The record is a 116-nucleotide RNA sequence from Centropus unirufus, which matches "Small nucleolar RNA SNORA61" in Rfam.
Its family is annotated with nucleolus and RNA processing in the Gene Ontology.
NCBI's taxonomy places the organism under Eukaryota, Opisthokonta, Bilateria, Neoaves, Centropus.
The base pairs follow the family's consensus structure, which was predicted with PFOLD.
By type it is an H/ACA-box small nucleolar RNA.
Rfam describes the family as follows. ACA61 is a member of the H/ACA class of snoRNA that guide the sites of modification of uridines to pseudouridines.
RNA sequence: UCCCUCCAGACCCCUUUCCCAUCUGAUCUGAAUACCGAUCUGGUGGUCGAAAAAGGAGGAAAAUUAAAUGUCAGCUGGUCAGGGCCUCUGCUGGGUGCAGUCCAGUUCUGAGAGGG
Numbered sequence: 001u002c003c004c005u006c007c008a009g010a011c012c013c014c015u016u017u018c019c020c021a022u023c024u025g026a027u028c029u030g031a032a033u034a035c036c037g038a039u040c041u042g043g044u045g046g047u048c049g050a051a052a053a054a055g056g057a058g059g060a061a062a063a064u065u066a067a068a069u070g071u072c073a074g075c076u077g078g079u080c081a082g083g084g085c086c087u088c089u090g091c092u093g094g095g096u097g098c099a100g101u102c103c104a105g106u107u108c109u110g111a112g113a114g115g116g
Stems, first nucleotide, its partner, number of pairs: 003059005019046005025040004075105004080100001086095002